[Rfam]
RNA sequence: CUGCUAAAAGGGAAUGGGACUUCCCUGUCAUAAACCGCUAAGAAAAUAGCUGAUAGUUCCUGUCGUGAG
Numbered sequence: 001c002u003g004c005u006a007a008a009a010g011g012g013a014a015u016g017g018g019a020c021u022u023c024c025c026u027g028u029c030a031u032a033a034a035c036c037g038c039u040a041a042g043a044a045a046a047u048a049g050c051u052g053a054u055a056g057u058u059c060c061u062g063u064c065g066u067g068a069g
Base pairs, nucleotide, nucleotide: 010025011024012023013022016060017059018058019057020056021055037050038049039048040047